[Rfam]
RNA: MIR530 microRNA precursor family
Organism: Prunus yedoensis
RNA sequence: GCCAAUAUGUUGCUUUAUCUGCAUUUGCACCUGCACUUGUUCUUCCUUCAUCUCCUCAAAACUUUAAACGUCAGAGCUUCAAAGCUUCAAAGCAUGGCUAAGGCAAGAAAAAAGGAAAGAGAAUUAAGAAUAUGUGUGAAGGUAGAAAGGAAGAGAAGAAACAAGCAAGAGGUGCAGGUGCCAAUGCAGGUGAAUGCCAUCUUGGU
Numbered sequence: 001g002c003c004a005a006u007a008u009g010u011u012g013c014u015u016u017a018u019c020u021g022c023a024u025u026u027g028c029a030c031c032u033g034c035a036c037u038u039g040u041u042c043u044u045c046c047u048u049c050a051u052c053u054c055c056u057c058a059a060a061a062c063u064u065u066a067a068a069c070g071u072c073a074g075a076g077c078u079u080c081a082a083a084g085c086u087u088c089a090a091a092g093c094a095u096g097g098c099u100a101a102g103g104c105a106a107g108a109a110a111a112a113a114g115g116a117a118a119g120a121g122a123a124u125u126a127a128g129a130a131u132a133u134g135u136g137u138g139a140a141g142g143u144a145g146a147a148a149g150g151a152a153g154a155g156a157a158g159a160a161a162c163a164a165g166c167a168a169g170a171g172g173u174g175c176a177g178g179u180g181c182c183a184a185u186g187c188a189g190g191u192g193a194a195u196g197c198c199a200u201c202u203u204g205g206u
Stems, first nucleotide, its partner, number of pairs: 001206005007200003012197002014194012027181012053116003